[Rfam]
RNA sequence: UGAUAUGAGCCCUGGGCUCAUCAUAAAAAUAACUAUUUGAAUUCCUCUUUGACGGGCCAGUACCCUGUUACUGGCCGUUUUUUU
Numbered sequence: 001u002g003a004u005a006u007g008a009g010c011c012c013u014g015g016g017c018u019c020a021u022c023a024u025a026a027a028a029a030u031a032a033c034u035a036u037u038u039g040a041a042u043u044c045c046u047c048u049u050u051g052a053c054g055g056g057c058c059a060g061u062a063c064c065c066u067g068u069u070a071c072u073g074g075c076c077g078u079u080u081u082u083u084u
Base pairs, nucleotide, nucleotide: 007019008018009017010016011015028034055076056075057074058073059072060071061070062069